[Rfam]
RNA: RAGATH-10 RNA
RNA sequence: GAAACCUCACCUUCGAUCACGCCAUCCGGGCGUCGAUCAGUGCUUCCAGCACGGGCGUUCGCCCAGAUGAGGAGAGAGA
Dot-bracket structure: ....(((((.((...((((((((.....))))).)))..(((((...)))))((((....)))))).))))).......